[Rfam]
RNA sequence: CAGGCAUGCUGGAGCUCCGCAGCGGCGCCCGGGUCGAGAACCCCGACACCGUAUCUCCUUCGGAGCUUGU
Numbered sequence: 001c002a003g004g005c006a007u008g009c010u011g012g013a014g015c016u017c018c019g020c021a022g023c024g025g026c027g028c029c030c031g032g033g034u035c036g037a038g039a040a041c042c043c044c045g046a047c048a049c050c051g052u053a054u055c056u057c058c059u060u061c062g063g064a065g066c067u068u069g070u
Stems, first nucleotide, its partner, number of pairs: 012068008023051003030045003
The family of this 70-nucleotide RNA from Rhizobium etli is "ybhL leader". Pairs were carried over by alignment from the consensus structure. From the family's description: This family is a putative regulatory RNA structure that is found upstream of an uncharacterized membrane protein in alpha-proteobacteria. It is annotated as a cis-regulatory leader. Rfam links the family to the GO term regulation of gene expression.